RNA: Glutamine-II riboswitch aptamer
RNA sequence: UAACGUUCAUCCAAGUUUAUAUCUUUGGACGCAUGAAAUGGGAUUAGGGAACGGGAUUCUCAU
Numbered sequence: 001u002a003a004c005g006u007u008c009a010u011c012c013a014a015g016u017u018u019a020u021a022u023c024u025u026u027g028g029a030c031g032c033a034u035g036a037a038a039u040g041g042g043a044u045u046a047g048g049g050a051a052c053g054g055g056a057u058u059c060u061c062a063u
Stems, first nucleotide, its partner, number of pairs: 004053005010029005038063006044056002